[Rfam]
Rfam assigns this 121-nucleotide RNA sequence from Myotis lucifugus to the family "Small nucleolar RNA SNORA32". Its family is annotated with RNA processing and nucleolus in the Gene Ontology. The match comes from Rfam's covariance-model search (84 bits).
RNA sequence: AGGCCCUAAAGUUUUAGAAUGCAGUUUUUCAUUUGCCGUGGACAUGACCACAAAACAUUUCCCCAACAGGUUUUUUUUCUGCUAUGUUGGUAGCAUAGCAUUCAGCCUACUGGGAACAUUU
Numbered sequence: 001a002g003g004c005c006c007u008a009a010a011g012u013u014u015u016a017g018a019a020u021g022c023a024g025u026u027u028u029u030c031a032u033u034u035g036c037c038g039u040g041g042a043c044a045u046g047a048c049c050a051c052a053a054a055a056c057a058u059u060u061c062c063c064c065a066a067c068a069g070g071u072u073u074u075u076u077u078u079c080u081g082c083u084a085u086g087u088u089g090g091u092a093g094c095a096u097a098g099c100a101u102u103c104a105g106c107c108u109a110c111u112g113g114g115a116a117c118a119u120u121u
Base pairs, nucleotide, nucleotide: 001045005041006040021036022035023034024033062114063113064112065111069107070106071105072104080100081099082098083097084096085095

NCBI's taxonomy places the organism under Eukaryota, Eumetazoa, Dipnotetrapodomorpha, Eutheria, Myotis. ACA32 is a member of the H/ACA class of snoRNA that guide the sites of modification of uridines to pseudouridines.